[Rfam]
RNA sequence: UGAGCUCUCAAAGAGGCUGUGAAAUGCAUUUUGAAAGCUUUGCGAGCAUAUCACAGCCAGCUUUGAUGAGCUUAG
Number, nucleotide and partner (000 for none) at each position: 001u000002g000003a000004g000005c000006u068007c000008u066009c065010a064011a063012a062013g061014a000015g058016g057017c056018u055019g054020u053021g052022a051023a000024a000025u050026g049027c000028a000029u000030u000031u000032u000033g000034a000035a000036a000037g000038c000039u000040u000041u000042g000043c000044g000045a000046g000047c000048a000049u026050a025051u022052c021053a020054c019055a018056g017057c016058c015059a000060g000061c013062u012063u011064u010065g009066a008067u000068g006069a000070g000071c000072u000073u000074a000075g000
This 75-nucleotide sequence from Drosophila mojavensis belongs to the Rfam family "mir-2 microRNA precursor family". The family has 56 seed sequences and 918 matches in Rfam 15.1. Lineage of the source: Eukaryota > Panarthropoda > Insecta > Drosophilinae > mojavensis species complex. Its family is annotated with RISC complex and miRNA-mediated post-transcriptional gene silencing in the Gene Ontology. The sequence is in the family's curated seed alignment.